Shown here is an 80-nucleotide RNA sequence from Dipodomys ordii, a member of the family "mir-3473 microRNA precursor family". Pairs were carried over by alignment from the consensus structure, which was predicted with RNAalifold.
[Rfam]
RNA sequence: ACCACUGAGCCACCUUCCCAGCCCUGAGAAUUUAUUUUUAGGACUAGAAUGCUGAGGGGCUGGGAAGGUGGCUCAGUGGU
Numbered sequence: 001a002c003c004a005c006u007g008a009g010c011c012a013c014c015u016u017c018c019c020a021g022c023c024c025u026g027a028g029a030a031u032u033u034a035u036u037u038u039u040a041g042g043a044c045u046a047g048a049a050u051g052c053u054g055a056g057g058g059g060c061u062g063g064g065a066a067g068g069u070g071g072c073u074c075a076g077u078g079g080u
Stems, first nucleotide, its partner, number of pairs: 002079023